The record is a 215-nucleotide RNA sequence from Acipenser ruthenus, which matches "Small nucleolar RNA U3" in Rfam. From the family's description: Small nucleolar RNAs (snoRNAs) are involved in the processing and modification of rRNA in the nucleolus. There are two main classes of snoRNAs: the box C/D class, and the box H/ACA class. U3 snoRNA is a member of the box C/D class. Indeed, the box C/D element is a subset of the six short sequence elements found in all U3 snoRNAs, namely boxes A, A', B, C, C', and D. The U3 snoRNA secondary structure is characterised by a small 5' domain (with boxes A and A'), and a larger 3' domain (with boxes B, C, C', and D), the two domains being linked by a single-stranded hinge. The family's RNA type in Rfam is C/D-box small nucleolar RNA. Rfam links the family to the GO terms RNA processing and nucleolus. The family is grouped with related families in Rfam's "U3 clan". Lineage of the source: Eukaryota > Teleostomi > Euteleostomi > Actinopterygii > Acipenser.
Nucleotides: 215
Stems, first nucleotide, its partner, number of pairs: 002040001006035001009032003015027004051064001055062001076215002079212002095203012109167002119155004125149004129144004170189002174187005
Number, partner (000 for none) and nucleotide at each position: 001000a002040a003000a004000a005000c006035a007000g008000u009032a010031c011030u012000u013000u014000c015027a016026g017025g018024g019000a020000u021000c022000a023000u024018u025017u026016u027015u028000a029000u030011a031010g032009u033000u034000a035006u036000u037000u038000g039000c040002u041000a042000g043000c044000g045000a046000a047000a048000u049000g050000c051064a052000u053000u054000u055062c056000u057000a058000a059000a060000g061000u062055g063000u064051u065000u066000g067000g068000a069000c070000u071000c072000g073000c074000u075000a076215u077214c078000c079212a080211c081000g082000a083000g084000g085000a086000a087000a088000g089000g090000u091000g092000a093000g094000a095203g096202u097201g098200u099199u100198c101197g102196u103195u104194u105193u106192u107000g108000a109167g110166c111000a112000u113000g114000a115000a116000g117000a118000a119155g120154a121153c122152a123000g124000c125149g126148a127147g128146u129144g130143u131142u132141g133000u134000u135000u136000u137000u138000g139000g140000c141132u142131a143130a144129c145000u146128g147127c148126u149125c150000g151000c152122u153121g154120u155119u156000a157000u158000u159000g160000a161000u162000g163000a164000c165000c166110g167109c168000u169000c170189c171188a172000g173000u174187g175186u176185u177184c178183c179000u180000u181000a182000g183178g184177g185176g186175g187174c188171u189170g190000g191000a192106g193105g194104a195103a196102g197101c198100g199099g200098a201097c202096a203095c204000g205000u206000u207000c208000u209000g210000a211080g212079u213000u214077g215076g